[Rfam]
This 48-nucleotide sequence from Neobacillus mesonae belongs to the Rfam family "PreQ1 (pre queuosine) riboswitch aptamer".
The organism belongs to Neobacillus, within Bacteria.
It scores 40 bits against the family's covariance model.
The literature on the family includes a 2022 paper in Nat Commun by Schroeder et al., "A small RNA that cooperatively senses two stacked metabolites in one pocket for gene control".
Rfam links the family to the GO term queuosine biosynthetic process.
Pairs were carried over by alignment from the consensus structure.
Rfam describes the family as follows. This family is a bacterial riboswitch that binds to the metabolite preQ1, an intermediate in the biosynthesis of the modified nucleoside queuosine from GTP. One example of this riboswitch is located in the leader of the Bacillus subtilis ykvJKLM (queCDEF) operon which encodes four genes necessary for queuosine production.

RNA sequence: AUACGAGAGGUUCAUAGCGAUUAACCCUCUAUAAAAAACUAUGGAUAU
Numbered sequence: 001a002u003a004c005g006a007g008a009g010g011u012u013c014a015u016a017g018c019g020a021u022u023a024a025c026c027c028u029c030u031a032u033a034a035a036a037a038a039c040u041a042u043g044g045a046u047a048u
Base pairs, nucleotide, nucleotide: 006030007029008028009027010026015041016040